[Rfam]
RNA sequence: GCAUGUUCGCUGCUCAGGUACUUAGUGACUCUCAAUUGCCUUUGUGCUUUGCAUAUCUUGAGGGUCGCUCUGUGCCUGUGCUGCGCUUGC
Numbered sequence: 001g002c003a004u005g006u007u008c009g010c011u012g013c014u015c016a017g018g019u020a021c022u023u024a025g026u027g028a029c030u031c032u033c034a035a036u037u038g039c040c041u042u043u044g045u046g047c048u049u050u051g052c053a054u055a056u057c058u059u060g061a062g063g064g065u066c067g068c069u070c071u072g073u074g075c076c077u078g079u080g081c082u083g084c085g086c087u088u089g090c
Base pairs, nucleotide, nucleotide: 001090002089003088005086010083012081013080015078016077017076018075019074020073021072024069025068026067027066028065029064030063031062032061033060034059035056036055